[Rfam]
RNA sequence: CAAUGAAUAGGUGAUGGAUUUCCGCCUGGCCGAUUUUGAGCCGAACCGCCCACGAUGAUGGGCUGAUGAUUCCUACCGGUGA
Dot-bracket structure: .........((((..[[[.[[.)))).....................((((........))))....]].]]].........
Record summary
Fluoride riboswitch aptamer (crcB RNA motif): an 82-nucleotide RNA sequence from Saccharibacter sp. 17.LH.SD. It scores 48 bits against the family's covariance model. Pairs were carried over by alignment from the consensus structure, which is taken from published work. The source organism's lineage runs through Bacteria, Pseudomonadati, Alphaproteobacteria, Acetobacterales and Saccharibacter.